[Rfam]
RNA sequence: CUCACACUCAUGUGUAUAGGACAUUAAAGGAUCACUAUUAAAUUUGGCACAGAUCUUUAAAAAAGUUAUCACUUGAGAGUGAGACUUGACUUUUCUAAAGAUCUGUACCAAAUUUAAUGGUGAUCCUUUGAGAUCCUAUAUCUAUGGGUGUGGG
Numbered sequence: 001c002u003c004a005c006a007c008u009c010a011u012g013u014g015u016a017u018a019g020g021a022c023a024u025u026a027a028a029g030g031a032u033c034a035c036u037a038u039u040a041a042a043u044u045u046g047g048c049a050c051a052g053a054u055c056u057u058u059a060a061a062a063a064a065g066u067u068a069u070c071a072c073u074u075g076a077g078a079g080u081g082a083g084a085c086u087u088g089a090c091u092u093u094u095c096u097a098a099a100g101a102u103c104u105g106u107a108c109c110a111a112a113u114u115u116a117a118u119g120g121u122g123a124u125c126c127u128u129u130g131a132g133a134u135c136c137u138a139u140a141u142c143u144a145u146g147g148g149u150g151u152g153g154g
Stems, first nucleotide, its partner, number of pairs: 002153011015140007024131005030125003034121014049106011061094008069082005